This 195-nucleotide RNA from Brenneria goodwinii belongs to the Rfam family "Yersinia sRNA 276". A search with the family's covariance model found it, with a score of 191 bits.
[Rfam]
RNA sequence: AACCGACAUCAAGGAUUCAUUCUGAGACCCCUGACCGACCGCCAGAUAGGCAUUCAUGCCCAGCUCUUUCAUCUGCUGUUCGCCAAUCACGCGAGUAAUGAUGUUCUGACUGUAGGUAUCGGCCAGUUGGCGCGCCUGAGAAGCCAGAUAGGCGGCAUUACAGAUAUUGGGCGGCAUGUUGCCCAGAUCUUUCGC
Numbered sequence: 001a002a003c004c005g006a007c008a009u010c011a012a013g014g015a016u017u018c019a020u021u022c023u024g025a026g027a028c029c030c031c032u033g034a035c036c037g038a039c040c041g042c043c044a045g046a047u048a049g050g051c052a053u054u055c056a057u058g059c060c061c062a063g064c065u066c067u068u069u070c071a072u073c074u075g076c077u078g079u080u081c082g083c084c085a086a087u088c089a090c091g092c093g094a095g096u097a098a099u100g101a102u103g104u105u106c107u108g109a110c111u112g113u114a115g116g117u118a119u120c121g122g123c124c125a126g127u128u129g130g131c132g133c134g135c136c137u138g139a140g141a142a143g144c145c146a147g148a149u150a151g152g153c154g155g156c157a158u159u160a161c162a163g164a165u166a167u168u169g170g171g172c173g174g175c176a177u178g179u180u181g182c183c184c185a186g187a188u189c190u191u192u193c194g195c
Stems, first nucleotide, its partner, number of pairs: 005189002012032003017027002020024001033043001035041001050059002062077003078135002081132007091123002095119003099112002102109001136163003140159002143156003167186006
Overview: Pairs were carried over by alignment from the consensus structure, which was predicted with RNAfold. Taxonomically the source falls in Brenneria (Bacteria, Pseudomonadati, Pseudomonadota, Gammaproteobacteria).